[Rfam]
RNA sequence: UUCCCCAGAUUGGAUCGGCACUUCGGCAGCUUCUUCUCACCGGUGAUAUAUCCCUCUAGUUGAUUAUCACCGGGGUUGAAACUGCCAAGGUCCGGCUCUCUCUC
Dot-bracket structure: ...............(((.((((.(((((.(((..(((..(.((((((................)))))).))))..))).))))).)))))))..........
Rfam assigns this 104-nucleotide RNA from Caenorhabditis remanei to the family "mir-36 microRNA precursor family". The literature on the family includes a 2004 paper in RNA by Ohler et al., "Patterns of flanking sequence conservation and a characteristic upstream motif for microRNA gene identification". The organism belongs to Caenorhabditis, within Eukaryota. Rfam 15.1 lists 199 matches to the family in 31 species. Gene Ontology terms of the family: miRNA-mediated post-transcriptional gene silencing and RISC complex.